[Rfam]
RNA sequence: UGUUGAUGUGAUGAAUAUUGUCUCGGAAUUACAUAUGUCGACUUAAAAAAAUUCAGACUACAAUUAUCUGAUUCAAUG
Numbered sequence: 001u002g003u004u005g006a007u008g009u010g011a012u013g014a015a016u017a018u019u020g021u022c023u024c025g026g027a028a029u030u031a032c033a034u035a036u037g038u039c040g041a042c043u044u045a046a047a048a049a050a051a052u053u054c055a056g057a058c059u060a061c062a063a064u065u066a067u068c069u070g071a072u073u074c075a076a077u078g
Stems, first nucleotide, its partner, number of pairs: 001078006
Shown here is a 78-nucleotide sequence from Beta vulgaris, a member of the family "Small nucleolar RNA Z155". The family's RNA type in Rfam is C/D-box small nucleolar RNA. The organism belongs to Beta vulgaris, within Eukaryota.